[Rfam]
RNA sequence: UGUUGGACGCAACAUGGGAGUGACUGAAUAAACUUACUGGCAACCGCUGGUUAAGGUGAUGAGACACAGGUGGUGCUGCUGCUCGCAAGGGUAGAACCGAUCAACCAAUCGGGUCUCAGGCAACAAUGUAUUUACUUCUGUAGUAAUGCCCGUUGUUUGUCGGUAUACAGGAAUCCGACCUCCCUCUUU
Numbered sequence: 001u002g003u004u005g006g007a008c009g010c011a012a013c014a015u016g017g018g019a020g021u022g023a024c025u026g027a028a029u030a031a032a033c034u035u036a037c038u039g040g041c042a043a044c045c046g047c048u049g050g051u052u053a054a055g056g057u058g059a060u061g062a063g064a065c066a067c068a069g070g071u072g073g074u075g076c077u078g079c080u081g082c083u084c085g086c087a088a089g090g091g092u093a094g095a096a097c098c099g100a101u102c103a104a105c106c107a108a109u110c111g112g113g114u115c116u117c118a119g120g121c122a123a124c125a126a127u128g129u130a131u132u133u134a135c136u137u138c139u140g141u142a143g144u145a146a147u148g149c150c151c152g153u154u155g156u157u158u159g160u161c162g163g164u165a166u167a168c169a170g171g172a173a174u175c176c177g178a179c180c181u182c183c184c185u186c187u188u189u
Stems, first nucleotide, its partner, number of pairs: 001014005016184005023057002036051006060118006067078003071107004079094006097112005122157007132146004138170004159179005
RNA: manA RNA